RNA: c-di-GMP-I-GGC riboswitch aptamer
RNA sequence: GUCGAUAAUAGCAAACCUAUCGAAAGGUAGGGACGCAAAGCUAUAGGGCCUUUUGUACAUUGGUAUUAAUGGCAGCCUAGCCGCCGAAG
Numbered sequence: 001g002u003c004g005a006u007a008a009u010a011g012c013a014a015a016c017c018u019a020u021c022g023a024a025a026g027g028u029a030g031g032g033a034c035g036c037a038a039a040g041c042u043a044u045a046g047g048g049c050c051u052u053u054u055g056u057a058c059a060u061u062g063g064u065a066u067u068a069a070u071g072g073c074a075g076c077c078u079a080g081c082c083g084c085c086g087a088a089g
Stems, first nucleotide, its partner, number of pairs: 003086002011036002016031006034075001040081003045078003048073003